[Rfam]
RNA: mir-187 microRNA precursor family
Organism: Cricetulus griseus
RNA sequence: GAUGCGGGUCCUCAGGCUACAACACAGGACCCGGGCGCUCCUCUGACCCCUCGUGUCUUGUGUUGCAGCCGGAGGGACGC
Numbered sequence: 001g002a003u004g005c006g007g008g009u010c011c012u013c014a015g016g017c018u019a020c021a022a023c024a025c026a027g028g029a030c031c032c033g034g035g036c037g038c039u040c041c042u043c044u045g046a047c048c049c050c051u052c053g054u055g056u057c058u059u060g061u062g063u064u065g066c067a068g069c070c071g072g073a074g075g076g077a078c079g080c
Stems, first nucleotide, its partner, number of pairs: 011074002015070004020065011032053004